[Rfam]
A member of the RNA family "mir-17 microRNA precursor family" from Gallus gallus, 77 nucleotides long. Pairs were carried over by alignment from the consensus structure, which was predicted with RNAalifold. Rfam's curators write: This family represents the microRNA (miRNA) precursor mir-17, family, which includes mir-20, mir-91, and mir-103. miRNAs are transcribed as ~70nt precursors (modelled here) and subsequently processed by the Dicer enzyme to give a ~22nt product. The organism belongs to Gallus, within Eukaryota.

RNA sequence: UUGAGUUGUGCAAAAGUGCUUACAGUGCAGGUAGAGCUCAGCACCUACUGCAGUAUAAGCACUUCUGGCAUGACCGU
Numbered sequence: 001u002u003g004a005g006u007u008g009u010g011c012a013a014a015a016g017u018g019c020u021u022a023c024a025g026u027g028c029a030g031g032u033a034g035a036g037c038u039c040a041g042c043a044c045c046u047a048c049u050g051c052a053g054u055a056u057a058a059g060c061a062c063u064u065c066u067g068g069c070a071u072g073a074c075c076g077u
Stems, first nucleotide, its partner, number of pairs: 005074004010069002014064009024054001026052003030049005
Dot-bracket structure: ....((((.((..(((((((((.(.(((.(((((..........)))))))).).)))))))))...)).))))...